About this RNA: mir-458 microRNA precursor family: a 78-nucleotide sequence from Gallus gallus. Rfam's curators put it in the seed alignment. Pairs were carried over by alignment from the consensus structure, which was predicted with RNAalifold. Rfam 15.1 lists 1,011 matches to the family in 491 species. Gene Ontology terms of the family: RISC complex and miRNA-mediated post-transcriptional gene silencing.
RNA sequence: GUGCAGAUGGCAGCGCCAUUUUCAGAGCUAUAAACAGCGUCAUUGUCAUAGCUCUUUGAAUGGUACUGCCAUAUGUAC
Dot-bracket structure: .(((..(((.(((.(((((((..((((((((................))))))))..))))))).))).)))..))).